[Rfam]
About this RNA: Rfam assigns this 240-nucleotide RNA sequence to the family "Small nucleolar RNA SNORA53". About the family: The snoRNA ACA53 belongs to the H/ACA family of pseudouridylation guide snoRNAs.
RNA sequence: CACAUGCUCCUAAGAUCACCUUUGUGGAUGCCCGUCUUGAGCUGAGUCUACUUGUAAACUCUGGUUUCUUGUAGUCAGUCAAAGAAACAUCCAGCAACUUUUUGGUUGAUAGUCAAAGGUGCUUGAGUCAUUGGCAUGUAAGAUAAAUAUACCUGCAUGUUAGUCUUAGGUUCUGAUAGAAAUGACAUGCAAUUAUGCUGCCAUUUUUUACUAUCAGGACUCGACUGGUGUGCGGACACU
Numbered sequence: 001c002a003c004a005u006g007c008u009c010c011u012a013a014g015a016u017c018a019c020c021u022u023u024g025u026g027g028a029u030g031c032c033c034g035u036c037u038u039g040a041g042c043u044g045a046g047u048c049u050a051c052u053u054g055u056a057a058a059c060u061c062u063g064g065u066u067u068c069u070u071g072u073a074g075u076c077a078g079u080c081a082a083a084g085a086a087a088c089a090u091c092c093a094g095c096a097a098c099u100u101u102u103u104g105g106u107u108g109a110u111a112g113u114c115a116a117a118g119g120u121g122c123u124u125g126a127g128u129c130a131u132u133g134g135c136a137u138g139u140a141a142g143a144u145a146a147a148u149a150u151a152c153c154u155g156c157a158u159g160u161u162a163g164u165c166u167u168a169g170g171u172u173c174u175g176a177u178a179g180a181a182a183u184g185a186c187a188u189g190c191a192a193u194u195a196u197g198c199u200g201c202c203a204u205u206u207u208u209u210a211c212u213a214u215c216a217g218g219a220c221u222c223g224a225c226u227g228g229u230g231u232g233c234g235g236a237c238a239c240u
Stems, first nucleotide, its partner, number of pairs: 002139007009127001011125003017121008025093006035085004041079004046075001048074004054068001056067004095108005153235005160228001162226004172218008183210003187206001189201003